Shown here is a 111-nucleotide sequence from Halalkalibacter akibai, a member of the family "SAM riboswitch aptamer (S box leader)".
RNA sequence: CUCUUAUCAUGAGAAGGCUGAGGGAAUUGGACCGAUGACGCCCGGCAACCGGCUUGUUUAAGCAAUGGUGCUACUUCCAACAGAAUGAUACGUCAUUCUGAGAGAUGAGAG
Numbered sequence: 001c002u003c004u005u006a007u008c009a010u011g012a013g014a015a016g017g018c019u020g021a022g023g024g025a026a027u028u029g030g031a032c033c034g035a036u037g038a039c040g041c042c043c044g045g046c047a048a049c050c051g052g053c054u055u056g057u058u059u060a061a062g063c064a065a066u067g068g069u070g071c072u073a074c075u076u077c078c079a080a081c082a083g084a085a086u087g088a089u090a091c092g093u094c095a096u097u098c099u100g101a102g103a104g105a106u107g108a109g110a111g
Base pairs, nucleotide, nucleotide: 001111002110003109004108005107006106007105008104013043016042017041018040022033023032027080028079029078030077044072045071046070047069049068050067052063053062054061076103081100082099083098084097085096086095
NCBI's taxonomy places the organism under Bacteria, Bacillati, Bacillota, Caryophanales, Halalkalibacter akibai.